[Rfam]
RNA sequence: UGCAGCCCUGUCAAAUUCAGUCCCUGCCUGCUCCGUGCUGGGCACUGGCCACCCGGCUGCCACAGCAGCUCCUGUGGGUGCACAGCCCCCCCCUCCCUGCCCGUGGGACACUGGGGGUAAAGUCACACCACAGACACUG
Numbered sequence: 001u002g003c004a005g006c007c008c009u010g011u012c013a014a015a016u017u018c019a020g021u022c023c024c025u026g027c028c029u030g031c032u033c034c035g036u037g038c039u040g041g042g043c044a045c046u047g048g049c050c051a052c053c054c055g056g057c058u059g060c061c062a063c064a065g066c067a068g069c070u071c072c073u074g075u076g077g078g079u080g081c082a083c084a085g086c087c088c089c090c091c092c093c094u095c096c097c098u099g100c101c102c103g104u105g106g107g108a109c110a111c112u113g114g115g116g117g118u119a120a121a122g123u124c125a126c127a128c129c130a131c132a133g134a135c136a137c138u139g
Base pairs, nucleotide, nucleotide: 002060003059004058005057018047019046020045021044023042024041025040026039028037074131075130076129078128079127080126087117088116089115090114091113
About this RNA:
Rfam assigns this 139-nucleotide RNA from Ceyx cyanopectus to the family "Small nucleolar RNA SNORA5". A search with the family's covariance model found it, with a score of 63 bits. Rfam describes the family as follows. ACA5 is a member of the H/ACA class of snoRNA that guide the sites of modification of uridines to pseudouridines. It is annotated as an H/ACA-box small nucleolar RNA. Rfam links the family to the GO terms RNA processing and nucleolus.